A member of the RNA family "mir-571 microRNA precursor family" from Macaca mulatta, 85 nucleotides long. Rfam 15.1 lists 202 matches to the family in 33 species. Pairs were carried over by alignment from the consensus structure, which was predicted with RNAalifold.
RNA sequence: AGUAAGGCCAACCUCCAUGCACCAUUUUCUUGUCUGUAGCCAUGUCUGUGGGCUGUGGAGUUGGCCACCUGGGUGAGGGCCUGCU
Numbered sequence: 001a002g003u004a005a006g007g008c009c010a011a012c013c014u015c016c017a018u019g020c021a022c023c024a025u026u027u028u029c030u031u032g033u034c035u036g037u038a039g040c041c042a043u044g045u046c047u048g049u050g051g052g053c054u055g056u057g058g059a060g061u062u063g064g065c066c067a068c069c070u071g072g073g074u075g076a077g078g079g080c081c082u083g084c085u
Stems, first nucleotide, its partner, number of pairs: 001085004006080001008078002013073003018067002022064003026060003032053008